RNA sequence: UGCUGUUCGUGAUGAUCUUUGAAAUUUAAAACAGAUGGGAAUCUCUCUGAAAAAGAAUGAAGAUUUUUAAAAACUGAAACAGUA
Dot-bracket structure: (((((((......................................................................)))))))
A member of the RNA family "Small nucleolar RNA SNORD79" from Pteropus alecto, 84 nucleotides long. Rfam describes the family as follows. snoRNA U79 or Z22 is found in intron 7 of the gas5 gene in humans and is also present in mice. Pairs were carried over by alignment from the consensus structure, which was predicted with PFOLD. The match comes from Rfam's covariance-model search (88 bits). For this family Rfam cites "Purified box C/D snoRNPs are able to reproduce site-specific 2'-O-methylation of target RNA in vitro" (Galardi et al., Mol Cell Biol, 2002). By type it is a C/D-box small nucleolar RNA.